A member of the RNA family "Archaeal large subunit ribosomal RNA" from Methanosphaera stadtmanae, 261 nucleotides of a longer RNA.
RNA sequence: GAGUUUGUAGUUGUGGCGAGGCUAAAAAGCUUAAGCUUUGUAGUCGCAGGGAAACCGAGUAAGACGUAACUUCUUGUGUGGUCUUCUGAUUAUAAAAUGUCACAGUCACAGCUUUAAAACCCGAAGCCGGUCGAUCUAUCCGUGAGCAGGAUGAAAUCGCUCAUACGAGUGAUGGAGGUUCGCAGAGUUGUUGUUCUGCAAAACACUCUUAUGACUUGCGGUUAGUGGUGAAAGGUCAAUCAAGAUCGGUGACAGCUGGUU
Numbered sequence: 001g002a003g004u005u006u007g008u009a010g011u012u013g014u015g016g017c018g019a020g021g022c023u024a025a026a027a028a029g030c031u032u033a034a035g036c037u038u039u040g041u042a043g044u045c046g047c048a049g050g051g052a053a054a055c056c057g058a059g060u061a062a063g064a065c066g067u068a069a070c071u072u073c074u075u076g077u078g079u080g081g082u083c084u085u086c087u088g089a090u091u092a093u094a095a096a097a098u099g100u101c102a103c104a105g106u107c108a109c110a111g112c113u114u115u116a117a118a119a120c121c122c123g124a125a126g127c128c129g130g131u132c133g134a135u136c137u138a139u140c141c142g143u144g145a146g147c148a149g150g151a152u153g154a155a156a157u158c159g160c161u162c163a164u165a166c167g168a169g170u171g172a173u174g175g176a177g178g179u180u181c182g183c184a185g186a187g188u189u190g191u192u193g194u195u196c197u198g199c200a201a202a203a204c205a206c207u208c209u210u211a212u213g214a215c216u217u218g219c220g221g222u223u224a225g226u227g228g229u230g231a232a233a234g235g236u237c238a239a240u241c242a243a244g245a246u247c248g249g250u251g252a253c254a255g256c257u258g259g260u261u
Stems, first nucleotide, its partner, number of pairs: 005117003009113009020045004026039004049056002062084004069077002089098002120259002123256001127249006136225003140221007147213001149181004156173007185210003190206002193204002227237003
Pairs were carried over by alignment from the consensus structure, which is taken from published work. Taxonomically the source falls in Methanosphaera stadtmanae (Archaea, Methanobacteriota, Methanobacteriaceae, Methanosphaera). The family has 91 seed sequences and 2,955 matches in Rfam 15.1. The sequence is in the family's curated seed alignment.